[Rfam]
RNA sequence: AGCAGAGUAGGUGUUUAUGCGUUAAGUGCCGGGUAUACGGGGAGUUGAUAGCCGGACGAAAGCCAUCAGGCUGCGGUGUAAGCAUUGCAUCCCGCUGCU
Numbered sequence: 001a002g003c004a005g006a007g008u009a010g011g012u013g014u015u016u017a018u019g020c021g022u023u024a025a026g027u028g029c030c031g032g033g034u035a036u037a038c039g040g041g042g043a044g045u046u047g048a049u050a051g052c053c054g055g056a057c058g059a060a061a062g063c064c065a066u067c068a069g070g071c072u073g074c075g076g077u078g079u080a081a082g083c084a085u086u087g088c089a090u091c092c093c094g095c096u097g098c099u
Base pairs, nucleotide, nucleotide: 001099002098003097004096005095010086011085012084013083014082015081016080017079018078019077020075021074022073026057027056029055030054031053032052034050035049036048040092041091042090044088061072062071063070064069
Dot-bracket structure: (((((....(((((((((((((...((.((((.(((...[[[.[...))).))))))...((((....))))))).)))))))))).].]]]..)))))
Source information: The family of this 99-nucleotide RNA sequence from Mitsuokella multacida is "THF (Tetrahydrofolate) riboswitch aptamer". Rfam's curators put it in the seed alignment. Tetrahydrofolate (THF) riboswitch was first reported for Ames et al. as an RNA motif in 5' untranslated (5'-UTR)regions of folate transport and biosynthesis genes in Firmicutes genomes. Gene Ontology term of the family: tetrahydrofolate metabolic process.